[Rfam]
RNA sequence: AGACCUGAAGAGAGAGGCAGGGUCUGAUCCUCAGCUUCUGUGGCAGCUGUUGAUCAGCUGUUGCCUCUCUCUUUCUCUCCA
Numbered sequence: 001a002g003a004c005c006u007g008a009a010g011a012g013a014g015a016g017g018c019a020g021g022g023u024c025u026g027a028u029c030c031u032c033a034g035c036u037u038c039u040g041u042g043g044c045a046g047c048u049g050u051u052g053a054u055c056a057g058c059u060g061u062u063g064c065c066u067c068u069c070u071c072u073u074u075c076u077c078u079c080c081a
Stems, first nucleotide, its partner, number of pairs: 008073013022059001024057006032049004
This 81-nucleotide sequence from Eptesicus fuscus belongs to the Rfam family "mir-574 microRNA precursor family". The literature on the family includes a 2007 paper in Cancer Res by Lui et al., "Patterns of known and novel small RNAs in human cervical cancer". The organism belongs to Eptesicus, within Eukaryota. Rfam links the family to the GO terms RISC complex and miRNA-mediated post-transcriptional gene silencing.